[Rfam]
RNA sequence: AGCCUAUGAUGACUUCAGUACCAGAGUAGUGGACAGAAGUGAUUUCUGAAAACUCUCAGCUGAGGCU
Number, nucleotide and partner (000 for none) at each position: 001a067002g066003c065004c064005u000006a000007u000008g000009a000010u000011g000012a000013c000014u000015u000016c000017a000018g000019u000020a000021c000022c000023a000024g000025a000026g000027u000028a000029g000030u000031g000032g000033a000034c000035a000036g000037a000038a000039g000040u000041g000042a000043u000044u000045u000046c000047u000048g000049a000050a000051a000052a000053c000054u000055c000056u000057c000058a000059g000060c000061u000062g000063a000064g004065g003066c002067u001
RNA: Small nucleolar RNA SNORD75